[Rfam]
RNA sequence: CCGGGGGCUGACGCCCCCGGCUGGAGAGGAGCGCCCUUUCGGGGCU
Numbered sequence: 001c002c003g004g005g006g007g008c009u010g011a012c013g014c015c016c017c018c019g020g021c022u023g024g025a026g027a028g029g030a031g032c033g034c035c036c037u038u039u040c041g042g043g044g045c046u
Base pairs, nucleotide, nucleotide: 001020002019003018004017005016006015007014008013033045034044035043036042037041
Rfam assigns this 46-nucleotide RNA sequence from Caulifigura coniformis to the family "Acido-Lenti-1 RNA". The family has 87 seed sequences and 2,607 matches in Rfam 15.1. The organism belongs to Caulifigura, within Bacteria.